[Rfam]
RNA sequence: AGUCGAUGAUGAUAUAAUGAAAGGCUUGUUUCUCAGAAUUCGCAGUGGCCGCCCAAGAGCUUUCGCCUUCGCCAGGCUUGAGAGCUAAUGCUGUGUUUAUCCUUCCUUGGAUGUCUGAGACU
Number, nucleotide and partner (000 for none) at each position: 001a122002g121003u120004c119005g000006a000007u000008g000009a000010u000011g000012a000013u000014a000015u000016a000017a000018u000019g000020a000021a000022a000023g000024g000025c000026u000027u000028g000029u000030u000031u000032c000033u000034c000035a000036g000037a000038a000039u000040u000041c000042g000043c000044a000045g000046u000047g000048g000049c000050c000051g000052c000053c000054c000055a000056a000057g000058a000059g085060c084061u083062u082063u081064c080065g000066c000067c000068u000069u000070c000071g000072c000073c000074a000075g000076g000077c000078u000079u000080g064081a063082g062083a061084g060085c059086u000087a000088a000089u000090g000091c000092u000093g000094u000095g000096u000097u000098u000099a000100u000101c000102c000103u000104u000105c000106c000107u000108u000109g000110g000111a000112u000113g000114u000115c000116u000117g000118a000119g004120a003121c002122u001
A member of the RNA family "Small nucleolar RNA SNORD14" from Aquilegia coerulea, 122 nucleotides long. A search with the family's covariance model found it, with a score of 80 bits. On this family, see Samarsky et al., Nucleic Acids Res 1996: "An essential domain in Saccharomyces cerevisiae U14 snoRNA is absent in vertebrates, but conserved in other yeasts".